[Rfam]
RNA sequence: GUUCUGCGGUGAUGAAUUAUGGAUUAAAUUCACAUGUCAGACUUCAGAGAUUGUAAAAAAUCAAUGAGAAUGAAACUUCCUAGCGUCUGAGCAGAUU
Numbered sequence: 001g002u003u004c005u006g007c008g009g010u011g012a013u014g015a016a017u018u019a020u021g022g023a024u025u026a027a028a029u030u031c032a033c034a035u036g037u038c039a040g041a042c043u044u045c046a047g048a049g050a051u052u053g054u055a056a057a058a059a060a061u062c063a064a065u066g067a068g069a070a071u072g073a074a075a076c077u078u079c080c081u082a083g084c085g086u087c088u089g090a091g092c093a094g095a096u097u
Stems, first nucleotide, its partner, number of pairs: 001097001003095005049062004
This 97-nucleotide RNA sequence from Rosa chinensis belongs to the Rfam family "Small nucleolar RNA R64/Z200 family". The family's consensus secondary structure was predicted with PFOLD. It is annotated as a C/D-box small nucleolar RNA. Gene Ontology terms of the family: RNA processing and nucleolus. A search with the family's covariance model found it, with a score of 84 bits. The organism belongs to Rosa, within Eukaryota.